[Rfam]
RNA: Plastid-psbA-3 3UTR RNA
Organism: Conioselinum tenuissimum
RNA sequence: AAAAGGCAAUACCGCCCUCUUGUUCUAUCAAGAGGGCGGUAUUGCUUUUUUUUA
Numbered sequence: 001a002a003a004a005g006g007c008a009a010u011a012c013c014g015c016c017c018u019c020u021u022g023u024u025c026u027a028u029c030a031a032g033a034g035g036g037c038g039g040u041a042u043u044g045c046u047u048u049u050u051u052u053u054a
Base pairs, nucleotide, nucleotide: 001050002049003048004047005046006045007044008043009042010041011040012039017034018033019032020031021030022029